[Rfam]
RNA sequence: AAGAGCCUUGGGUUAAUAAAAAUUGAGGAGAUUGAUUCGGGAACGAA
Number, nucleotide and partner (000 for none) at each position: 001a000002a000003g000004a000005g000006c000007c041008u040009u000010g038011g037012g036013u035014u034015a033016a032017u031018a000019a000020a000021a000022a000023u000024u000025g000026a000027g000028g000029a000030g000031a017032u016033u015034g014035a013036u012037u011038c010039g000040g008041g007042a000043a000044c000045g000046a000047a000
The family of this 47-nucleotide RNA from Elaeis guineensis is "Plastid-rpl16 group II-D1 intron". Plastid-rpl16 is a non-coding RNA (ncRNA) recognised in plastids. Its family is annotated with Group II intron splicing in the Gene Ontology.